[Rfam]
RNA: FuFi-1 RNA
RNA sequence: UCUGUCAACUAAAGGGCAAACCUUUAACUAGCUUUUUUAAAGGCUAUCAUGCUGAACUGUAACAGCAUAAGUGACAGUGCAUACAUAGAAGCAAUUGGCGCAAUCAGUUGUAAUUGGCUUUUCAAUUUGCAUAUGUAUAGGGUAAAAAAAUUCAGACAAACGUCAGUAAGAAUUGCGCUCUUAUUGGCGUUU
Numbered sequence: 001u002c003u004g005u006c007a008a009c010u011a012a013a014g015g016g017c018a019a020a021c022c023u024u025u026a027a028c029u030a031g032c033u034u035u036u037u038u039a040a041a042g043g044c045u046a047u048c049a050u051g052c053u054g055a056a057c058u059g060u061a062a063c064a065g066c067a068u069a070a071g072u073g074a075c076a077g078u079g080c081a082u083a084c085a086u087a088g089a090a091g092c093a094a095u096u097g098g099c100g101c102a103a104u105c106a107g108u109u110g111u112a113a114u115u116g117g118c119u120u121u122u123c124a125a126u127u128u129g130c131a132u133a134u135g136u137a138u139a140g141g142g143u144a145a146a147a148a149a150a151u152u153c154a155g156a157c158a159a160a161c162g163u164c165a166g167u168a169a170g171a172a173u174u175g176c177g178c179u180c181u182u183a184u185u186g187g188c189g190u191u192u
Stems, first nucleotide, its partner, number of pairs: 002077006050067005057155003061151001079136005091111007099177005112127005160190012